[Rfam]
RNA sequence: AAAGUCUCAUACAGUGAAGGACCAGCAACCCACACUGGCCCCGAGUCAUGCGCAGCGUCCCGCGAGGGCCGCGGCGAAGCGUUGACAGGGGAGUGCAUAGCCAGCCAUUGAGCCGCGAAAGCAUUUUGCAACCGGAUGCCGACAGGGUUCAGUUCCUGGAAGGCAACAUGGUUGUUCUUCGGUUCCGCGGUCGUGCGAACC
Numbered sequence: 001a002a003a004g005u006c007u008c009a010u011a012c013a014g015u016g017a018a019g020g021a022c023c024a025g026c027a028a029c030c031c032a033c034a035c036u037g038g039c040c041c042c043g044a045g046u047c048a049u050g051c052g053c054a055g056c057g058u059c060c061c062g063c064g065a066g067g068g069c070c071g072c073g074g075c076g077a078a079g080c081g082u083u084g085a086c087a088g089g090g091g092a093g094u095g096c097a098u099a100g101c102c103a104g105c106c107a108u109u110g111a112g113c114c115g116c117g118a119a120a121g122c123a124u125u126u127u128g129c130a131a132c133c134g135g136a137u138g139c140c141g142a143c144a145g146g147g148u149u150c151a152g153u154u155c156c157u158g159g160a161a162g163g164c165a166a167c168a169u170g171g172u173u174g175u176u177c178u179u180c181g182g183u184u185c186c187g188c189g190g191u192c193g194u195g196c197g198a199a200c201c
Stems, first nucleotide, its partner, number of pairs: 012037005019031002039091004045086004049081002051076003055072003059068003109195001110192001112191006134185004138164003143158004169181003
Rfam assigns this 201-nucleotide sequence from Rhodopila globiformis to the family "Group II catalytic intron D1-D4-6". The organism belongs to Rhodopila, within Bacteria. Gene Ontology term of the family: Group II intron splicing. Group II introns are found in rRNA, tRNA and mRNA of organelles in fungi, plants and protists, and also in mRNA in bacteria.